This 46-nucleotide RNA sequence from Lottiidibacillus patelloidae belongs to the Rfam family "Ribosomal protein L19 leader". The family's RNA type in Rfam is cis-regulatory leader. Lineage of the source: Bacteria > Bacillati > Bacilli > Bacillaceae > Lottiidibacillus. The base pairs follow the family's consensus structure, which was predicted with CMfinder. Gene Ontology term of the family: regulation of gene expression. It scores 37 bits against the family's covariance model. A reference for the family is Zengel and Lindahl (1994), "Diverse mechanisms for regulating ribosomal protein synthesis in Escherichia coli", Prog Nucleic Acid Res Mol Biol.

[Rfam]
RNA sequence: ACGGUGUUCCGCUGUAAUGAUACAAAAAGCAUUGCAAGAACAUCUG
Numbered sequence: 001a002c003g004g005u006g007u008u009c010c011g012c013u014g015u016a017a018u019g020a021u022a023c024a025a026a027a028a029g030c031a032u033u034g035c036a037a038g039a040a041c042a043u044c045u046g
Base pairs, nucleotide, nucleotide: 003044004043005042006041007040008039009038013036014035015034016033017032018031